[Rfam]
RNA sequence: GUGGGCUACGGGGAUAUGAAGCCUAUCACUGUUGGGGGCAAGAUAGUUGGGUCUCUGUGUGCCAUCGCAGGUGUUUUAACCAUUGCAUUGCCAGUGCCAGUUAUCGUCUCCAAC
Numbered sequence: 001g002u003g004g005g006c007u008a009c010g011g012g013g014a015u016a017u018g019a020a021g022c023c024u025a026u027c028a029c030u031g032u033u034g035g036g037g038g039c040a041a042g043a044u045a046g047u048u049g050g051g052u053c054u055c056u057g058u059g060u061g062c063c064a065u066c067g068c069a070g071g072u073g074u075u076u077u078a079a080c081c082a083u084u085g086c087a088u089u090g091c092c093a094g095u096g097c098c099a100g101u102u103a104u105c106g107u108c109u110c111c112a113a114c
Base pairs, nucleotide, nucleotide: 001114002113004111005110008107009106010105011104013102014101015100018097020095037077038076040074049063050062